RNA: Makes More Granules Regulator RNA (mmgR)
RNA sequence: UAUCGCUGCCCUCCUUGGGCGUUUCCUCCCUAGACUUCAGGCCGGCCAUCGCAAGGUGGUCGGCCUUCCUUUUAGAUGAAU
Dot-bracket structure: .......((((.....))))..................(((((((((((......)))))))))))...............